[Rfam]
RNA: mir-86 microRNA precursor family
Organism: Dracunculus medinensis
RNA sequence: AGACCGGUUAAGUGAAUGCUUUGCCACAGUCUUAGAAAAUGGAUUAAGCUGGGCUGAGGUUCACUUAGGCUGGAGG
Numbered sequence: 001a002g003a004c005c006g007g008u009u010a011a012g013u014g015a016a017u018g019c020u021u022u023g024c025c026a027c028a029g030u031c032u033u034a035g036a037a038a039a040u041g042g043a044u045u046a047a048g049c050u051g052g053g054c055u056g057a058g059g060u061u062c063a064c065u066u067a068g069g070c071u072g073g074a075g076g
Base pairs, nucleotide, nucleotide: 004073005072006071009067010066011065012064013063014062015061016060017059019058020057021056023054024053025052027051028050029049